Rfam assigns this 201-nucleotide RNA to the family "RAGATH-7 RNA". A reference for the family is Weinberg et al. (2015), "New classes of self-cleaving ribozymes revealed by comparative genomics analysis", Nat Chem Biol.
RNA sequence: ACUAUUCCGCCUUUAUAUGCACAUUAAAGGUUAAAGAUUGAAUAGUAAUCCACGUGGUAGAUGCAGUUGUAGGUUCCAACUGGUGCACAUCUUAUUAGAGACAGCAACCAAGCUUGAAGUAAGCAGAGCGAAGAUUAGCUAUACCUCGAUAGGCUUAAUGAGGUGCUUAACAGUCUAACACUAACUGAACAAUAAGUGUUA
Numbered sequence: 001a002c003u004a005u006u007c008c009g010c011c012u013u014u015a016u017a018u019g020c021a022c023a024u025u026a027a028a029g030g031u032u033a034a035a036g037a038u039u040g041a042a043u044a045g046u047a048a049u050c051c052a053c054g055u056g057g058u059a060g061a062u063g064c065a066g067u068u069g070u071a072g073g074u075u076c077c078a079a080c081u082g083g084u085g086c087a088c089a090u091c092u093u094a095u096u097a098g099a100g101a102c103a104g105c106a107a108c109c110a111a112g113c114u115u116g117a118a119g120u121a122a123g124c125a126g127a128g129c130g131a132a133g134a135u136u137a138g139c140u141a142u143a144c145c146u147c148g149a150u151a152g153g154c155u156u157a158a159u160g161a162g163g164u165g166c167u168u169a170a171c172a173g174u175c176u177a178a179c180a181c182u183a184a185c186u187g188a189a190c191a192a193u194a195a196g197u198g199u200u201a
Stems, first nucleotide, its partner, number of pairs: 001046007009038001011029005059092004064082006112129004120169005143164005176201007
Dot-bracket structure: (((((((.(.(((((.........)))))........).)))))))............((((.((((((.......))))))......))))...................[[[[....(((((.]]]].............(((((............))))))))))......(((((((............)))))))